A member of the RNA family "mir-135 microRNA precursor family" from Chiloscyllium punctatum, 86 nucleotides long. The literature on the family includes a 2004 paper in Proc Natl Acad Sci U S A by Kim et al., "Identification of many microRNAs that copurify with polyribosomes in mammalian neurons".
RNA sequence: UCUCCAUUGUGUUCUAUGGCUUUUUAUUCCUAUGUGAUUGGACGUAUGCUUCAUAUAGGGAUGAAAGCCACGAAAUACAGUGUGAG
Dot-bracket structure: ..(.(((((((((.(.(((((((..((((((((((((.............)))))))))))).))))))).).))))))))).)..